[Rfam]
RNA: mir-3473 microRNA precursor family
RNA sequence: ACCGCUAAGCCAUCUCUCCAGCCCAAUUUUUAUUUUUUUAAAGAAAGCAAGUGAGACAGACAGAGAAAGAAAGAGAGGGGCUGGAGAGAUGGCUUAGCGGU
Numbered sequence: 001a002c003c004g005c006u007a008a009g010c011c012a013u014c015u016c017u018c019c020a021g022c023c024c025a026a027u028u029u030u031u032a033u034u035u036u037u038u039u040a041a042a043g044a045a046a047g048c049a050a051g052u053g054a055g056a057c058a059g060a061c062a063g064a065g066a067a068a069g070a071a072a073g074a075g076a077g078g079g080g081c082u083g084g085a086g087a088g089a090u091g092g093c094u095u096a097g098c099g100g101u
Stems, first nucleotide, its partner, number of pairs: 002100023